[Rfam]
Nucleotides: 084
Base pairs, nucleotide, nucleotide: 002084003083004082006034007033008032009031010030015025016024017023018022036047037046038045039044049080050079051078052077057073058072059071060070061069062068063067
Number, partner (000 for none) and nucleotide at each position: 001000u002084c003083g004082c005000a006034u007033c008032c009031g010030c011000c012000a013000a014000c015025c016024g017023g018022u019000a020000a021000a022018g023017c024016c025015g026000u027000g028000u029000c030010g031009c032008g033007g034006g035000a036047g037046g038045u039044u040000u041000c042000u043000c044039a045038a046037c047036c048000a049080g050079c051078u052077u053000c054000a055000u056000u057073g058072u059071u060070c061069c062068c063067u064000g065000c066000a067063g068062g069061g070060g071059a072058a073057c074000g075000g076000a077052a078051a079050g080049u081000a082004g083003c084002g
The record is an 84-nucleotide sequence from Ramlibacter montanisoli, which matches "SucA RNA motif" in Rfam.
Gene Ontology term of the family: regulation of translation.
Lineage of the source: Bacteria > Pseudomonadati > Betaproteobacteria > Burkholderiales > Ramlibacter.
It is annotated as a cis-regulatory element.